[Rfam]
RNA sequence: UUCCCAGCCAGGCUCCUGGCUAAAAUACAGCUUUUAGCUGUAUUUAGUCAAAGCCUGGCUGUAAA
Numbered sequence: 001u002u003c004c005c006a007g008c009c010a011g012g013c014u015c016c017u018g019g020c021u022a023a024a025a026u027a028c029a030g031c032u033u034u035u036a037g038c039u040g041u042a043u044u045u046a047g048u049c050a051a052a053g054c055c056u057g058g059c060u061g062u063a064a065a
Stems, first nucleotide, its partner, number of pairs: 007059003011055004017050008027041005
Dot-bracket structure: ......(((.((((..((((((((..(((((.....))))).)))))))).)))).)))......

The record is a 65-nucleotide RNA sequence from Mesocricetus auratus, which matches "mir-344 microRNA precursor family" in Rfam.
The match comes from Rfam's covariance-model search (68 bits).
Its family is annotated with miRNA-mediated post-transcriptional gene silencing and RISC complex in the Gene Ontology.
Rfam 15.1 lists 339 matches to the family in 9 species.
The source organism's lineage runs through Eukaryota, Bilateria, Mammalia, Eutheria and Mesocricetus.
The family's consensus secondary structure was predicted with RNAalifold.